[Rfam]
RNA sequence: GGUCUUGCGGCCGGGUGGAAGACUAGUGAUUUUGUUGUUUCGAUCUAGAAACCAACAGCAAGUCACAGUCUCCCGUCCGGCUCAGAUC
Dot-bracket structure: (((((...(.((((((((.(((((.(((((((.((((((..............)))))))))))))))))).)))))))).).)))))
Numbered sequence: 001g002g003u004c005u006u007g008c009g010g011c012c013g014g015g016u017g018g019a020a021g022a023c024u025a026g027u028g029a030u031u032u033u034g035u036u037g038u039u040u041c042g043a044u045c046u047a048g049a050a051a052c053c054a055a056c057a058g059c060a061a062g063u064c065a066c067a068g069u070c071u072c073c074c075g076u077c078c079g080g081c082u083c084a085g086a087u088c
Stems, first nucleotide, its partner, number of pairs: 001088005009082001011080008020071005026066007034059006
Rfam assigns this 88-nucleotide RNA from Petromyzon marinus to the family "mir-7 microRNA precursor family". Rfam's curators write: This family represents the microRNA (miRNA) precursor mir-7. Gene Ontology terms of the family: miRNA-mediated post-transcriptional gene silencing and RISC complex. The family's consensus secondary structure was predicted with PFOLD.